[Rfam]
RNA: mir-252 microRNA precursor family
RNA sequence: UUUCGUUCCUAAGUACUAGUGCCGCAGGAGAUUGACAUUUUAUAACAGCUCCUGCUGCUCCAGUGCUUAUCAAUGGAA
Numbered sequence: 001u002u003u004c005g006u007u008c009c010u011a012a013g014u015a016c017u018a019g020u021g022c023c024g025c026a027g028g029a030g031a032u033u034g035a036c037a038u039u040u041u042a043u044a045a046c047a048g049c050u051c052c053u054g055c056u057g058c059u060c061c062a063g064u065g066c067u068u069a070u071c072a073a074u075g076g077a078a
Base pairs, nucleotide, nucleotide: 001078002077003076004075005074006073007072010069011068012067013066014065015064016063017062019060024055025054026053027052028051029050030049
Dot-bracket structure: (((((((..((((((((.(....(((((((..................)))))))....).))))))))..)))))))